[Rfam]
Overview: The family of this 52-nucleotide sequence from Roseiterribacter gracilis is "serC leader". Taxonomically the source falls in Roseiterribacter (Bacteria, Pseudomonadota, Alphaproteobacteria, Rhodospirillales). Pairs were carried over by alignment from the consensus structure. Rfam's curators write: This family is a putative regulatory RNA structure that is found upstream of the serC-serA operon in some alpha-proteobacteria. The final stem of the structure overlaps the ribosome binding site of the serC reading frame. It is annotated as a cis-regulatory leader.
RNA sequence: GACCGGGCCACGCUCCCCCACCGGAGCGCUAUCGUCUGGAAGGACGGUUUGC
Numbered sequence: 001g002a003c004c005g006g007g008c009c010a011c012g013c014u015c016c017c018c019c020a021c022c023g024g025a026g027c028g029c030u031a032u033c034g035u036c037u038g039g040a041a042g043g044a045c046g047g048u049u050u051g052c
Stems, first nucleotide, its partner, number of pairs: 011028006032047006